[Rfam]
RNA sequence: CGGCGCUUGAGGCUUUCUGCCUCAUGACGUGAAGGUGGUUUGUUAUCCUGUUGUGUGGCAGAAGGACAAAAGCCCCGUAGUUAAUUUUCAUUAACCCACGAGGCCUCUGCAUGUCUAGUCCACGUCAGUAUGCCCUCUUACCGUGCAAAUUGCAAGGAGGAGUAAACCAUG
Numbered sequence: 001c002g003g004c005g006c007u008u009g010a011g012g013c014u015u016u017c018u019g020c021c022u023c024a025u026g027a028c029g030u031g032a033a034g035g036u037g038g039u040u041u042g043u044u045a046u047c048c049u050g051u052u053g054u055g056u057g058g059c060a061g062a063a064g065g066a067c068a069a070a071a072g073c074c075c076c077g078u079a080g081u082u083a084a085u086u087u088u089c090a091u092u093a094a095c096c097c098a099c100g101a102g103g104c105c106u107c108u109g110c111a112u113g114u115c116u117a118g119u120c121c122a123c124g125u126c127a128g129u130a131u132g133c134c135c136u137c138u139u140a141c142c143g144u145g146c147a148a149a150u151u152g153c154a155a156g157g158a159g160g161a162g163u164a165a166a167c168c169a170u171g
Base pairs, nucleotide, nucleotide: 002075003074005073006072007071008070011067013065014064015063016062017061018060019059020058021057023055026052027051028050029049077099078098080095081094082093083092084091085090100137101136102135103134108130109129111125112124113123142162
Dot-bracket structure: .((.((((..(.(((((((((.(..((((...................))))..).))))))))).)..)))))).((.((((((....))))))..))((((....((.(((.........)))...))...))))....(...................).........